[Rfam]
RNA sequence: CUACCCCAUGGUGCUCAGGUCCGCCGCAUCUCCUGGGUCGUGGGGUCGGCUGGUCGGCGCCGGAAAUGUGGCCUCCUCGUACCGCAACCUGUGCUGACCAGCCCCCAA
Numbered sequence: 001c002u003a004c005c006c007c008a009u010g011g012u013g014c015u016c017a018g019g020u021c022c023g024c025c026g027c028a029u030c031u032c033c034u035g036g037g038u039c040g041u042g043g044g045g046u047c048g049g050c051u052g053g054u055c056g057g058c059g060c061c062g063g064a065a066a067u068g069u070g071g072c073c074u075c076c077u078c079g080u081a082c083c084g085c086a087a088c089c090u091g092u093g094c095u096g097a098c099c100a101g102c103c104c105c106c107a108a
Stems, first nucleotide, its partner, number of pairs: 003046008014037006048103011
Rfam assigns this 108-nucleotide RNA sequence from Hoeflea prorocentri to the family "EcpR1". Lineage of the source: Bacteria > Pseudomonadota > Alphaproteobacteria > Rhizobiaceae > Hoeflea. On this family, see Wilms et al., RNA Biol 2012: "Deep sequencing uncovers numerous small RNAs on all four replicons of the plant pathogen Agrobacterium tumefaciens". Rfam links the family to the GO terms negative regulation of cell cycle, regulation of translation in response to stress and mRNA binding. It scores 99 bits against the family's covariance model. Rfam classes the family as a small RNA. About the family: Perviously named SmelC291, SmrC10, or Sra33.